[Rfam]
RNA sequence: UAGCCCCUGACCCCCGGUGGCCCGGAGGGGAGGUGGUGGGGGCCGGGGCGGGGAGGGGGCUGCUGGCUAACAUUUACCAGGGCCUUUGAA
Numbered sequence: 001u002a003g004c005c006c007c008u009g010a011c012c013c014c015c016g017g018u019g020g021c022c023c024g025g026a027g028g029g030g031a032g033g034u035g036g037u038g039g040g041g042g043c044c045g046g047g048g049c050g051g052g053g054a055g056g057g058g059g060c061u062g063c064u065g066g067c068u069a070a071c072a073u074u075u076a077c078c079a080g081g082g083c084c085u086u087u088g089a090a
Stems, first nucleotide, its partner, number of pairs: 003049005011030004
A member of the RNA family "GRIK4 3 prime UTR element" from Microcebus murinus, 90 nucleotides long. Pairs were carried over by alignment from the consensus structure, which was predicted with CMfinder. By type it is a non-coding RNA gene.